[Rfam]
Nucleotides: 097
Base pairs, nucleotide, nucleotide: 001097002096003095005093006092007091008090037067038066039065043061044060045059046058047057048056
Number, partner (000 for none) and nucleotide at each position: 001097a002096a003095g004000a005093g006092u007091g008090c009000g010000g011000u012000g013000a014000u015000g016000a017000u018000a019000u020000c021000u022000u023000u024000u025000g026000u027000g028000g029000a030000c031000u032000a033000g034000a035000g036000u037067u038066u039065a040000u041000g042000a043061u044060c045059u046058g047057g048056g049000c050000u051000c052000u053000u054000c055000u056048c057047c058046c059045a060044g061043g062000a063000c064000u065039u066038g067037a068000u069000u070000a071000c072000a073000a074000c075000c076000c077000c078000u079000u080000g081000g082000c083000u084000g085000u086000c087000u088000g089000a090008g091007c092006a093005c094000c095003c096002u097001u